[Rfam]
RNA: L13-Bacteroidia ribosomal protein leader
RNA sequence: GGGGAGAGUCUUAGGCUCCCCAGCACGGGAGUGUUAAUAGCGGUGUCUUUGGCCAGGCAUCGUGGUUAGUGAAUC
Numbered sequence: 001g002g003g004g005a006g007a008g009u010c011u012u013a014g015g016c017u018c019c020c021c022a023g024c025a026c027g028g029g030a031g032u033g034u035u036a037a038u039a040g041c042g043g044u045g046u047c048u049u050u051g052g053c054c055a056g057g058c059a060u061c062g063u064g065g066u067u068a069g070u071g072a073a074u075c
Stems, first nucleotide, its partner, number of pairs: 001021006034069005040063009